[Rfam]
RNA sequence: GCCUGCCUGGCUCCCCUCAUGCCAUCUAAGAAGCUCGUCAAAUACAGUUGGAUGCCUUCUUACAUGGCAUGAGGGGAGUCAUGCAGGA
Numbered sequence: 001g002c003c004u005g006c007c008u009g010g011c012u013c014c015c016c017u018c019a020u021g022c023c024a025u026c027u028a029a030g031a032a033g034c035u036c037g038u039c040a041a042a043u044a045c046a047g048u049u050g051g052a053u054g055c056c057u058u059c060u061u062a063c064a065u066g067g068c069a070u071g072a073g074g075g076g077a078g079u080c081a082u083g084c085a086g087g088a
Base pairs, nucleotide, nucleotide: 002087003086004085005084006083008081009080010079011078012077013076014075016073017072018071019070020069021068022067023066024065027062028061029060
RNA: mir-160 microRNA precursor family
Organism: Hibiscus syriacus